[Rfam]
RNA: Group II catalytic intron D1-D4-3
Organism: Oceanobacillus indicireducens
RNA sequence: UCCGAAGUGAUUCGGAAUCUGAAGGAAGCUGGAAGCAAAAUCCCGAACUGACGAACAGAAAUUGUAUAUAAGGCUGACUUGGAAUGGAUGAGUUUGCAACUCAAAACAAAGUCCGAUACUGCACGAGUUCCAUACAGUAAAUACAACAGUUACAUGGGAGGAAGGUUAUAGUC
Number, nucleotide and partner (000 for none) at each position: 001u016002c015003c014004g013005a012006a011007g000008u000009g000010a000011u006012u005013c004014g003015g002016a001017a000018u000019c000020u000021g000022a000023a000024g000025g000026a000027a000028g173029c000030u171031g000032g169033a000034a000035g166036c165037a000038a000039a000040a000041u159042c158043c157044c156045g155046a151047a150048c149049u148050g147051a000052c000053g000054a000055a000056c000057a000058g000059a000060a000061a000062u146063u145064g144065u143066a142067u141068a000069u000070a000071a000072g000073g138074c137075u136076g000077a000078c000079u000080u132081g131082g130083a129084a128085u000086g114087g113088a112089u111090g000091a000092g107093u106094u105095u104096g000097c000098a000099a000100c000101u000102c000103a000104a095105a094106a093107c092108a000109a000110a000111g089112u088113c087114c086115g000116a000117u000118a000119c000120u000121g000122c000123a000124c000125g000126a000127g000128u084129u083130c082131c081132a080133u000134a000135c000136a075137g074138u073139a000140a000141a067142u066143a065144c064145a063146a062147c050148a049149g048150u047151u046152a000153c000154a000155u045156g044157g043158g042159a041160g000161g000162a000163a000164g000165g036166u035167u000168a000169u032170a000171g030172u000173c028